Selenocysteine transfer RNA: an 86-nucleotide sequence from Intoshia linei.
RNA sequence: GCCGCCAUGAGCUUGAGUGGUCUUGAGUGCGGUCUUCAAAACCGUAGGUGAUUGGAUUCGCAGCGGUUCGAUUCCGCCCUGGUGGC
Numbered sequence: 001g002c003c004g005c006c007a008u009g010a011g012c013u014u015g016a017g018u019g020g021u022c023u024u025g026a027g028u029g030c031g032g033u034c035u036u037c038a039a040a041a042c043c044g045u046a047g048g049u050g051a052u053u054g055g056a057u058u059c060g061c062a063g064c065g066g067u068u069c070g071a072u073u074c075c076g077c078c079c080u081g082g083u084g085g086c
Stems, first nucleotide, its partner, number of pairs: 001086007009078001012027006028046006048061004063077004